[Rfam]
RNA: U11 spliceosomal RNA
RNA sequence: AAAAAGGGCUUCUGCUGUGAGUAGCACAUAGAAGAGGUGGCUGCGUCUUUACCUUUUUCUGUGCGGAAUCGCUAUCAAGAGAUUUCGGAAGCAUAAUUUUUGUGCUGGGGGUAGCUGGUAAUCGCUUGUUCUGGCUCCCCA
Dot-bracket structure: .......((((((((((....)))))((((((((((((((........)))))).))))))))(((((((..........))))))))))))................(((..(((((.(((.....)))))))).)))..